[Rfam]
RNA: MIR7504 microRNA precursor family
Organism: Gossypium trilobum
RNA sequence: AAUAGGAGAAUGACAAAUCAGAUUUUUUCUCUUGAGUUUUAGCAGUUUUAAUUGGAUUUUAAAUUUUUCAAGAGAAAAAAAUUGAAAAUCAGGAGGAUAAAUCUGAUUUGUCAUUCUCCUAUU
Numbered sequence: 001a002a003u004a005g006g007a008g009a010a011u012g013a014c015a016a017a018u019c020a021g022a023u024u025u026u027u028u029c030u031c032u033u034g035a036g037u038u039u040u041a042g043c044a045g046u047u048u049u050a051a052u053u054g055g056a057u058u059u060u061a062a063a064u065u066u067u068u069c070a071a072g073a074g075a076a077a078a079a080a081a082u083u084g085a086a087a088a089u090c091a092g093g094a095g096g097a098u099a100a101a102u103c104u105g106a107u108u109u110g111u112c113a114u115u116c117u118c119c120u121a122u123u
Stems, first nucleotide, its partner, number of pairs: 001123025027097001029095007037087003041083002046078003
Dot-bracket structure: (((((((((((((((((((((((((.(.(((((((.(((.((...(((...........................)))...)).))).))))))).).)))))))))))))))))))))))))